[Rfam]
RNA sequence: AAGUACGUAAUUAAAUACCCUCAUAUAUCCAUGGGAAUAGGGCCCAUAAGUUUCUACCCAGUUACCGUAAAUGACUGGACUAUGAGGGAAAGUAGCGCAGGG
Numbered sequence: 001a002a003g004u005a006c007g008u009a010a011u012u013a014a015a016u017a018c019c020c021u022c023a024u025a026u027a028u029c030c031a032u033g034g035g036a037a038u039a040g041g042g043c044c045c046a047u048a049a050g051u052u053u054c055u056a057c058c059c060a061g062u063u064a065c066c067g068u069a070a071a072u073g074a075c076u077g078g079a080c081u082a083u084g085a086g087g088g089a090a091a092g093u094a095g096c097g098c099a100g101g102g
Stems, first nucleotide, its partner, number of pairs: 018088008031047005058078007

About this RNA
The record is a 102-nucleotide sequence from Bacillus coahuilensis, which matches "Purine riboswitch aptamer" in Rfam.